The record is a 97-nucleotide RNA sequence from Halorutilus salinus, which matches "L4-Archaeoglobi ribosomal protein leades" in Rfam. It scores 64 bits against the family's covariance model. On this family, see Eckert and Weinberg, BMC Microbiol 2020: "Discovery of 20 novel ribosomal leader candidates in bacteria and archaea". By type it is a cis-regulatory leader.

[Rfam]
RNA sequence: CUGACGGACGCGUCUGGGUCAAUUGCGGAACGCAACACCCGGUCGCCCUUCGCGUCCCUGACGAGGGGAUACGGGAGGGGGAACGCGUCACCCUCAG
Dot-bracket structure: ((((...((((((.((((....(((((...)))))..)))).((.((((((......................)))))).)))))))).....))))
Numbered sequence: 001c002u003g004a005c006g007g008a009c010g011c012g013u014c015u016g017g018g019u020c021a022a023u024u025g026c027g028g029a030a031c032g033c034a035a036c037a038c039c040c041g042g043u044c045g046c047c048c049u050u051c052g053c054g055u056c057c058c059u060g061a062c063g064a065g066g067g068g069a070u071a072c073g074g075g076a077g078g079g080g081g082a083a084c085g086c087g088u089c090a091c092c093c094u095c096a097g
Stems, first nucleotide, its partner, number of pairs: 001097004008088006015041004023035005043082002046079006